[Rfam]
RNA sequence: CGAGAAAACUGGCCGACUAAAUUCGCCACGUCCUGUGGCGCCGUCGGCAUUAGCACAUCCUGUGCG
Numbered sequence: 001c002g003a004g005a006a007a008a009c010u011g012g013c014c015g016a017c018u019a020a021a022u023u024c025g026c027c028a029c030g031u032c033c034u035g036u037g038g039c040g041c042c043g044u045c046g047g048c049a050u051u052a053g054c055a056c057a058u059c060c061u062g063u064g065c066g
Stems, first nucleotide, its partner, number of pairs: 012048006025039005053065004
Annotation:
Shown here is a 66-nucleotide RNA from Bacillus sp. HNG, a member of the family "Bacillaceae-1 RNA". The family's RNA type in Rfam is small RNA. The family's consensus secondary structure is taken from published work. Rfam 15.1 lists 5,721 matches to the family in 247 species.